[Rfam]
RNA sequence: CAGCGGCACCUUCACAACGGAUCGUCCGGCACGUACCUGCCGGUGAAGGGAACCACU
Numbered sequence: 001c002a003g004c005g006g007c008a009c010c011u012u013c014a015c016a017a018c019g020g021a022u023c024g025u026c027c028g029g030c031a032c033g034u035a036c037c038u039g040c041c042g043g044u045g046a047a048g049g050g051a052a053c054c055a056c057u
Stems, first nucleotide, its partner, number of pairs: 009049006026043006